[Rfam]
RNA: MIR390 microRNA precursor family
Organism: Turnera subulata
RNA sequence: UGGAAGAAUCUGUCAAGCUCAGGAGGGAUAGCGCCAUCUGAUGAUGAUGAUACUCUCAUGGAUCCUUCUCUUGAGUUAGGUGAUGUUCCAUAAUCAGUAUAUAGCGCUAUCCAUCCUGAGUUUCAUGGGUUCUUCUU
Numbered sequence: 001u002g003g004a005a006g007a008a009u010c011u012g013u014c015a016a017g018c019u020c021a022g023g024a025g026g027g028a029u030a031g032c033g034c035c036a037u038c039u040g041a042u043g044a045u046g047a048u049g050a051u052a053c054u055c056u057c058a059u060g061g062a063u064c065c066u067u068c069u070c071u072u073g074a075g076u077u078a079g080g081u082g083a084u085g086u087u088c089c090a091u092a093a094u095c096a097g098u099a100u101a102u103a104g105c106g107c108u109a110u111c112c113a114u115c116c117u118g119a120g121u122u123u124c125a126u127g128g129g130u131u132c133u134u135c136u137u
Base pairs, nucleotide, nucleotide: 010128016122017121018120019119020118021117022116023115024114026112027111028110029109030108031107032106033105034104